[Rfam]
The record is an 87-nucleotide sequence from Rattus norvegicus, which matches "mir-146 microRNA precursor family" in Rfam.
The base pairs follow the family's consensus structure, which was predicted with WAR.
The organism belongs to Rattus, within Eukaryota.
RNA sequence: GUGUAUCCUCAGCUCUGAGAACUGAAUUCCAUGGGUUAUAGCAAUGUCAGACCUGUGAAGUUCAGUUCUUUAGCUGGGAUAGCUCUA
Number, nucleotide and partner (000 for none) at each position: 001g000002u000003g000004u000005a000006u000007c000008c078009u077010c000011a075012g074013c073014u000015c000016u000017g000018a069019g068020a067021a066022c065023u064024g063025a062026a000027u000028u000029c000030c000031a000032u000033g054034g053035g052036u051037u000038a000039u000040a000041g000042c000043a000044a000045u000046g000047u000048c000049a000050g000051a036052c035053c034054u033055g000056u000057g000058a000059a000060g000061u000062u025063c024064a023065g022066u021067u020068c019069u018070u000071u000072a000073g013074c012075u011076g000077g009078g008079a000080u000081a000082g000083c000084u000085c000086u000087a000